[Rfam]
RNA: U11 spliceosomal RNA
RNA sequence: AAAAAGGGUUUCUGCUAUGUUUGGCACAUGAGGGGGAGUAAUCUCACCCUUCGUGCGGAAUCGCAAUCAAGAGAUUUCGGAAGCAAAAUUUUUAUAACCAGGGCUGCUGGUGAUCAUUCGUCCCGGCGCCCUA
Dot-bracket structure: .......((((((((((....)))))(((((((((..(.....)..)))))))))(((((((..........))))))))))))................((((.(((((.(((.....))))))))))))..
Numbered sequence: 001a002a003a004a005a006g007g008g009u010u011u012c013u014g015c016u017a018u019g020u021u022u023g024g025c026a027c028a029u030g031a032g033g034g035g036g037a038g039u040a041a042u043c044u045c046a047c048c049c050u051u052c053g054u055g056c057g058g059a060a061u062c063g064c065a066a067u068c069a070a071g072a073g074a075u076u077u078c079g080g081a082a083g084c085a086a087a088a089u090u091u092u093u094a095u096a097a098c099c100a101g102g103g104c105u106g107c108u109g110g111u112g113a114u115c116a117u118u119c120g121u122c123c124c125g126g127c128g129c130c131c132u133a
Stems, first nucleotide, its partner, number of pairs: 008084005013026005027055009038044001056079007101131004106127005112122003